About this RNA:
This 234-nucleotide RNA sequence from a Selenomonadales bacterium belongs to the Rfam family "Group II catalytic intron D1-D4-6". It scores 160 bits against the family's covariance model. Rfam's curators write: Group II introns are found in rRNA, tRNA and mRNA of organelles in fungi, plants and protists, and also in mRNA in bacteria. The organism belongs to Selenomonadales, within Bacteria.
RNA sequence: CGAAUCCCGCUGGGAAAGGAAUAGCUAACCACCCAUAGCUAGCCUUGGAGCGCAGGGGGCAACCGCUGCGUUUAAGCGUAGGCAAGCAAGCUAGCAGGCCGAAAUCGCAAGGUGAAGGUAUUGAGCCCCGAAAUAUGCAUUGACGGGAGUGCCGAUGCUGUCCGUCCAGCAGAAGGCAAGAUUGCACUUAGCGUGAUAGCGAGUUAGGUGCAAACUCCCCGGGGUCUAAGGCCU
Number, nucleotide and partner (000 for none) at each position: 001c000002g000003a000004a000005u000006c000007c000008c000009g000010c000011u035012g034013g033014g032015a000016a000017a000018g030019g029020a000021a000022u202023a000024g200025c199026u000027a000028a000029c019030c018031a000032c014033c013034c012035a011036u000037a000038g087039c086040u000041a000042g083043c082044c081045u080046u078047g077048g073049a072050g071051c070052g069053c068054a067055g066056g000057g064058g063059g000060c000061a000062a000063c058064c057065g000066c055067u054068g053069c052070g051071u050072u049073u048074a000075a000076g000077c047078g046079u000080a045081g044082g043083c042084a000085a000086g039087c038088a000089a000090g000091c000092u000093a000094g000095c000096a000097g000098g000099c000100c000101g000102a000103a000104a000105u000106c000107g000108c000109a000110a000111g000112g000113u000114g000115a000116a000117g000118g000119u000120a000121u000122u228123g226124a000125g225126c224127c223128c222129c221130g220131a000132a000133a000134u000135a000136u000137g000138c000139a000140u000141u000142g000143a000144c000145g219146g218147g217148a216149g215150u214151g177152c176153c175154g000155a000156u171157g170158c169159u168160g000161u000162c000163c000164g000165u000166c000167c000168a159169g158170c157171a156172g000173a000174a000175g153176g152177c151178a000179a000180g000181a000182u213183u212184g211185c210186a209187c208188u207189u206190a205191g204192c203193g000194u000195g000196a000197u000198a000199g025200c024201g000202a022203g192204u191205u190206a189207g188208g187209u186210g185211c184212a183213a182214a150215c149216u148217c147218c146219c145220c130221g129222g128223g127224g126225u125226c123227u000228a122229a000230g000231g000232c000233c000234u000